SAM-I/IV (S-adenosyl methionine) riboswitch aptamer: a 106-nucleotide sequence from Zooshikella ganghwensis. Taxonomically the source falls in Zooshikella (Bacteria, Pseudomonadati, Gammaproteobacteria, Oceanospirillales). It scores 67 bits against the family's covariance model. For this family Rfam cites "Structural basis for diversity in the SAM clan of riboswitches" (Trausch et al., PNAS, 2014).

[Rfam]
RNA sequence: UAAUAACAUCAAGAGUAGGACUGACGUCCUCGCCAACCUGCUGUCCCUAGGCAAGGUGGAUUCCGCAAAGCGGAGAUGUGGCCAUUAGGCAAUUAAAUAGGCCCCC
Numbered sequence: 001u002a003a004u005a006a007c008a009u010c011a012a013g014a015g016u017a018g019g020a021c022u023g024a025c026g027u028c029c030u031c032g033c034c035a036a037c038c039u040g041c042u043g044u045c046c047c048u049a050g051g052c053a054a055g056g057u058g059g060a061u062u063c064c065g066c067a068a069a070g071c072g073g074a075g076a077u078g079u080g081g082c083c084a085u086u087a088g089g090c091a092a093u094u095a096a097a098u099a100g101g102c103c104c105c106c
Stems, first nucleotide, its partner, number of pairs: 006079005015031001017030005033059002037056003040052003045101002081090003